[Rfam]
Background:
U12 minor spliceosomal RNA: a 154-nucleotide RNA sequence from Channa argus. The literature on the family includes a 1997 paper in Trends Biochem Sci by Tarn and Steitz, "Pre-mRNA splicing: the discovery of a new spliceosome doubles the challenge". It scores 122 bits against the family's covariance model. The organism belongs to Channa, within Eukaryota.
RNA sequence: AUGCCUUAAACUGAUGAGUAAGGAAAAUAACGACGCGGGGUGACGCCCGUGUCCUCGUAAAACUAACGAGAUUAAUUUAUGAAAGGGCAUAGGUCUGCCUGCUGAGGUGACUCGCUUACUUCGCGAGAUGCCUCGUGGGACUAGGAUCUACCCC
Numbered sequence: 001a002u003g004c005c006u007u008a009a010a011c012u013g014a015u016g017a018g019u020a021a022g023g024a025a026a027a028u029a030a031c032g033a034c035g036c037g038g039g040g041u042g043a044c045g046c047c048c049g050u051g052u053c054c055u056c057g058u059a060a061a062a063c064u065a066a067c068g069a070g071a072u073u074a075a076u077u078u079a080u081g082a083a084a085g086g087g088c089a090u091a092g093g094u095c096u097g098c099c100u101g102c103u104g105a106g107g108u109g110a111c112u113c114g115c116u117u118a119c120u121u122c123g124c125g126a127g128a129u130g131c132c133u134c135g136u137g138g139g140a141c142u143a144g145g146a147u148c149u150a151c152c153c154c
Stems, first nucleotide, its partner, number of pairs: 004023005032053008054070005085153003091149006100138001105133005111127005